[Rfam]
RNA sequence: UAAUAACAAUCGCUGAAUGCUUAAAAACUAAGCAACGGGGGAACCAACUUGAACAUAAUCAUGUUCAUGGGGUGAAUCCAGUGACUAAACUCACUGGUAGGGCGACUCUCACGUCCGAAUCCGACAGCUAACUUCGUAAGCGAAUAAGGAGAGAGUAA
Numbered sequence: 001u002a003a004u005a006a007c008a009a010u011c012g013c014u015g016a017a018u019g020c021u022u023a024a025a026a027a028c029u030a031a032g033c034a035a036c037g038g039g040g041g042a043a044c045c046a047a048c049u050u051g052a053a054c055a056u057a058a059u060c061a062u063g064u065u066c067a068u069g070g071g072g073u074g075a076a077u078c079c080a081g082u083g084a085c086u087a088a089a090c091u092c093a094c095u096g097g098u099a100g101g102g103c104g105a106c107u108c109u110c111a112c113g114u115c116c117g118a119a120u121c122c123g124a125c126a127g128c129u130a131a132c133u134u135c136g137u138a139a140g141c142g143a144a145u146a147a148g149g150a151g152a153g154a155g156u157a158a
Base pairs, nucleotide, nucleotide: 011142012141013140014139018034019033020032021031022030035137036136037135038134039133040132045069046068070122071121072120078097079096080095081094082093083092100116101115102114103113
A member of the RNA family "c-di-AMP riboswitch aptamer (ydaO/yuaA leader)" from Paenibacillus sp. GSMTC-2017, 158 nucleotides long.